[Rfam]
RNA sequence: AAGGCAUGAUGAGGAUUGUUUUAUUGUCAUCUGAUUUCAUUGAUGAAUAUAGACCUCCUACUCAUUCUGA
Numbered sequence: 001a002a003g004g005c006a007u008g009a010u011g012a013g014g015a016u017u018g019u020u021u022u023a024u025u026g027u028c029a030u031c032u033g034a035u036u037u038c039a040u041u042g043a044u045g046a047a048u049a050u051a052g053a054c055c056u057c058c059u060a061c062u063c064a065u066u067c068u069g070a
Stems, first nucleotide, its partner, number of pairs: 006065004027046002031042001
A member of the RNA family "Small nucleolar RNA Z105" from Capsella rubella, 70 nucleotides long. It is annotated as a C/D-box small nucleolar RNA. Rfam links the family to the GO terms nucleolus and RNA processing. For this family Rfam cites "The high diversity of snoRNAs in plants: identification and comparative study of 120 snoRNA genes from Oryza sativa" (Chen et al., Nucleic Acids Res, 2003). The family has 11 seed sequences and 621 matches in Rfam 15.1. Lineage of the source: Eukaryota > Viridiplantae > Streptophytina > eudicotyledons > Capsella.